RNA sequence: CGUCACCGACCCCACGGCUUGCCCGCUCCCCGGCCACGGCACCAAUCCUAUCGUUGCUGGCUCCAGCAACGU
Numbered sequence: 001c002g003u004c005a006c007c008g009a010c011c012c013c014a015c016g017g018c019u020u021g022c023c024c025g026c027u028c029c030c031c032g033g034c035c036a037c038g039g040c041a042c043c044a045a046u047c048c049u050a051u052c053g054u055u056g057c058u059g060g061c062u063c064c065a066g067c068a069a070c071g072u
Base pairs, nucleotide, nucleotide: 007071008070017040018039019038020036021035023033024032025031051069053067054066055065056064
The record is a 72-nucleotide RNA from Pseudomonas syringae group genomosp. 3, which matches "Pseudomonas sRNA P10" in Rfam. For this family Rfam cites "Identification of 17 Pseudomonas aeruginosa sRNAs and prediction of sRNA-encoding genes in 10 diverse pathogens using the bioinformatic tool sRNAPredict2" (Livny et al., Nucleic Acids Res, 2006). Rfam classes the family as a small RNA. The family's consensus secondary structure was predicted with WAR. It is one of the family's seed sequences.